The record is a 54-nucleotide RNA sequence from Xenorhabdus innexi, which matches "L31-Gammaproteobacteria ribosomal protein leader" in Rfam.
A search with the family's covariance model found it, with a score of 61 bits.
On this family, see Eckert and Weinberg, BMC Microbiol 2020: "Discovery of 20 novel ribosomal leader candidates in bacteria and archaea".
Nucleotides: 054
Stems, first nucleotide, its partner, number of pairs: 001040005007034002011029004
Number, partner (000 for none) and nucleotide at each position: 001040c002039g003038u004037g005036u006000g007034g008033u009000g010000u011029c012028u013027g014026g015000c016000g017000g018000c019000a020000a021000u022000a023000a024000g025000g026014c027013c028012g029011g030000a031000u032000a033008g034007c035000g036005a037004c038003a039002c040001g041000g042000c043000c044000u045000u046000a047000a048000c049000a050000g051000a052000g053000g054000u